[Rfam]
Shown here is a 306-nucleotide sequence from Mycolicibacterium hassiacum, a member of the family "Mycobacterium smegmatis small RNA 1". Mycobacterium smegmatis small RNA 1 is highly expressed during stationary phase of growth. Ms1 RNA directly interacts with RNA polymerase (RNAP), but in a different way than 6S, which is present in other bacteria. Ms1 does not require the presence of the main sigma factor for RNAP interaction. There is evidence that Ms1 RNA may function similar to 6S RNA in M. smegmatis which does not have 6S RNA. Rfam links the family to the GO term RNA polymerase binding.
RNA sequence: ACGGAAACGUGGUGAGGCCAAGGCCGAGUCGGAAGAGAAGGCUCGGACUCCCGAUCCAGGUUUCCCAGCACGGGACACGGAACCCACGCGGAGCCCAUGCCGCGGAAUAGGCAGACCCGUUGCGGGCCUGCGUAUUUGCGAAGAGCGGGCGGGUGGAUGCCCUUUGGGUUGGGGCUACAGCCGCAGCGCAUCGCAAGACGCCGAGGCCAACCCACGCAACCGAGUAGAGCACGCUUGGUAACCGGAGUCCCGUGCUAGCGGGCGGCGCGCCGAACCCCAGGUUCGGAUCGCCGCCCGCUUCGCAUG
Numbered sequence: 001a002c003g004g005a006a007a008c009g010u011g012g013u014g015a016g017g018c019c020a021a022g023g024c025c026g027a028g029u030c031g032g033a034a035g036a037g038a039a040g041g042c043u044c045g046g047a048c049u050c051c052c053g054a055u056c057c058a059g060g061u062u063u064c065c066c067a068g069c070a071c072g073g074g075a076c077a078c079g080g081a082a083c084c085c086a087c088g089c090g091g092a093g094c095c096c097a098u099g100c101c102g103c104g105g106a107a108u109a110g111g112c113a114g115a116c117c118c119g120u121u122g123c124g125g126g127c128c129u130g131c132g133u134a135u136u137u138g139c140g141a142a143g144a145g146c147g148g149g150c151g152g153g154u155g156g157a158u159g160c161c162c163u164u165u166g167g168g169u170u171g172g173g174g175c176u177a178c179a180g181c182c183g184c185a186g187c188g189c190a191u192c193g194c195a196a197g198a199c200g201c202c203g204a205g206g207c208c209a210a211c212c213c214a215c216g217c218a219a220c221c222g223a224g225u226a227g228a229g230c231a232c233g234c235u236u237g238g239u240a241a242c243c244g245g246a247g248u249c250c251c252g253u254g255c256u257a258g259c260g261g262g263c264g265g266c267g268c269g270c271c272g273a274a275c276c277c278c279a280g281g282u283u284c285g286g287a288u289c290g291c292c293g294c295c296c297g298c299u300u301c302g303c304a305u306g
Base pairs, nucleotide, nucleotide: 003065004064006062007061008060010058011057012056016052017051021049022048025045026044027043028042029041030040067256068255069254070253071252072251073250074249078244079243080242084238085237086236088234089233090232093230094229098113099112100111101110119220120219121218122217123216124215125208126207127206128205129204130201131200132199133198136196137195138194139193140192141191145189146188147187149184150183151182152181154179158177159176161174162173163172164171258298259297260296261295262294263293264292265291266290267289270286271285272284
Record summary:
A search with the family's covariance model found it, with a score of 238 bits.